Mammalian CPEB3 ribozyme: a 77-nucleotide RNA from Parnassius apollo. The base pairs follow the family's consensus structure, which is taken from published work. Rfam describes the family as follows. The mammalian CPEB3 ribozyme is a self cleaving RNA located in the second intron of the CPEB3 gene which belongs to a family of genes regulating messenger RNA polyadenylation. This ribozyme is highly conserved and found only in mammals. The CPEB3 ribozyme is structurally and biochemically related to the human hepatitis delta virus (HDV) ribozyme and the HDV ribozyme is proposed to have arisen from the human transcriptome. There is currently only one other known self cleaving ribozyme in mammals, the CoTC motif.

Nucleotides: 077
Stems, first nucleotide, its partner, number of pairs: 014045005021077007028040003050067007
Number, partner (000 for none) and nucleotide at each position: 001000u002000a003000a004000u005000a006000u007000u008000c009000a010000u011000a012000g013000u014045g015044g016043g017042u018041c019000a020000u021077u022076g023075u024074a025073g026072a027071a028040g029039c030038g031000u032000g033000c034000u035000c036000g037000u038030c039029g040028c041018g042017a043016c044015c045014c046000c047000u048000g049000c050067u051066a052065g053064c054063c055062c056061u057000u058000u059000u060000c061056a062055g063054g064053g065052c066051u067050g068000u069000a070000a071027u072026u073025c074024u075023a076022c077021a